[Rfam]
RNA sequence: CCUUAGCCCCGAUAGCAGUGAAAAUCCUUUUUCUGGCUUCUUUAGCCAGGAAAAGAUUGUAACGAAUAGCGGGAAAUAGC
Numbered sequence: 001c002c003u004u005a006g007c008c009c010c011g012a013u014a015g016c017a018g019u020g021a022a023a024a025u026c027c028u029u030u031u032u033c034u035g036g037c038u039u040c041u042u043u044a045g046c047c048a049g050g051a052a053a054a055g056a057u058u059g060u061a062a063c064g065a066a067u068a069g070c071g072g073g074a075a076a077u078a079g080c
Base pairs, nucleotide, nucleotide: 009072010071011070013068014067018063019062023058024057025056026055029053030052031051032050033049034048035047036046037045038044
The family of this 80-nucleotide RNA sequence from Flavobacterium sp. KMS is "Flavo-1 RNA".
By type it is a small RNA.
Taxonomically the source falls in Flavobacterium (Bacteria, Pseudomonadati, Bacteroidota, Flavobacteriales).